Description:
Rfam assigns this 267-nucleotide sequence from Indicator maculatus to the family "RNase MRP". From the family's description: RNase MRP is an enzymatically active ribonucleoprotein with two distinct roles in eukaryotes. It is annotated as a ribozyme. Taxonomically the source falls in Indicator (Eukaryota, Amniota, Saurischia, Neoaves). Pairs were carried over by alignment from the consensus structure, which is taken from published work.
RNA sequence: GGAUGUUCUGAAGACCUGCUCACUAGGCUAUGCACGGAGGACACUAGUUCCUCAUGGGCCUUAGCGCCCGCCUAGGGGAAAGUCCCCGGACCGCGGGCAGAGAGUGCCGGGCGCUUCCGCGCCCUCGUCUGCCCCCACCUCACGCAGGUACCGCCAAGACGCCUUUGGGCAGAGCGGGUGAGAGCGGGGUGGGCUUCUCGUCACGGCCACAGAAACGCAGGUAGUGCACAGGCGCACUAACAGAACGGGGCUCACUCUCAGGCCAUC
Dot-bracket structure: .((((.(((((..((((((...((((((........(((((.......)))))................)))))).....[[.[[[[........((((.....))))((((((....))))))..(((...((((.(((((........((((......(((....)))...)))).)))).).))))..)))......................)))))).((((......)))).........]]]]]].....))))).))))